[Rfam]
RNA sequence: CACAAUCCUAAAGUAAGGUAUUCUGCGCCUAGCUAAGAAAACCUCGUUAAAGAUCUACAUGUUCGUUGUUAUAUCGUUGUUCUUCGUCCUGUCGUUUUUAAGUUCGGUCUCUUUUUAUGCUAAACCUGCCAAAUUUGGCACCCAAUUUAAUUUUUACAGGAAGAUAUAAUAUGUCUGAUAAAGUAGUAGGAACUGUUAAGUGGUUCAACGAAGAUAAAGGUUUUGGUUUCAUCGAGCAGCAAGGCGGUCCUGAUGUGUUCGCACAUUUCCGUUCAAUCGUUGGUGACGGCUUCAAGACUCUUAAAGAAGGUCAAAAAGUUGAAUUCACUAUCGGUCAAGGCCAAAAAGGUCCUCAAGCUGAAAACAUUCAAGUUAUCUAAUUCAAUUUAUCAUCAGACUUGUCUGGUGAAUUGAUAAGAAAACUAAGAAAGGCAAUCAUUUGAUUGCCUUUUUUGU
Numbered sequence: 001c002a003c004a005a006u007c008c009u010a011a012a013g014u015a016a017g018g019u020a021u022u023c024u025g026c027g028c029c030u031a032g033c034u035a036a037g038a039a040a041a042c043c044u045c046g047u048u049a050a051a052g053a054u055c056u057a058c059a060u061g062u063u064c065g066u067u068g069u070u071a072u073a074u075c076g077u078u079g080u081u082c083u084u085c086g087u088c089c090u091g092u093c094g095u096u097u098u099u100a101a102g103u104u105c106g107g108u109c110u111c112u113u114u115u116u117a118u119g120c121u122a123a124a125c126c127u128g129c130c131a132a133a134u135u136u137g138g139c140a141c142c143c144a145a146u147u148u149a150a151u152u153u154u155u156a157c158a159g160g161a162a163g164a165u166a167u168a169a170u171a172u173g174u175c176u177g178a179u180a181a182a183g184u185a186g187u188a189g190g191a192a193c194u195g196u197u198a199a200g201u202g203g204u205u206c207a208a209c210g211a212a213g214a215u216a217a218a219g220g221u222u223u224u225g226g227u228u229u230c231a232u233c234g235a236g237c238a239g240c241a242a243g244g245c246g247g248u249c250c251u252g253a254u255g256u257g258u259u260c261g262c263a264c265a266u267u268u269c270c271g272u273u274c275a276a277u278c279g280u281u282g283g284u285g286a287c288g289g290c291u292u293c294a295a296g297a298c299u300c301u302u303a304a305a306g307a308a309g310g311u312c313a314a315a316a317a318g319u320u321g322a323a324u325u326c327a328c329u330a331u332c333g334g335u336c337a338a339g340g341c342c343a344a345a346a347a348g349g350u351c352c353u354c355a356a357g358c359u360g361a362a363a364a365c366a367u368u369c370a371a372g373u374u375a376u377c378u379a380a381u382u383c384a385a386u387u388u389a390u391c392a393u394c395a396g397a398c399u400u401g402u403c404u405g406g407u408g409a410a411u412u413g414a415u416a417a418g419a420a421a422a423c424u425a426a427g428a429a430a431g432g433c434a435a436u437c438a439u440u441u442g443a444u445u446g447c448c449u450u451u452u453u454u455g456u
Stems, first nucleotide, its partner, number of pairs: 004021001007018003023239002026236001028234001037229001040228004044220002047217001053215004064210005071204002075173003080168001087161006094125004136144003175190002178187002243332002246329002252260002265319004272313001274310001277304001279302001282299001285298001287296001338353003354401004358396004404421001410415001426453012
RNA: cspA thermoregulator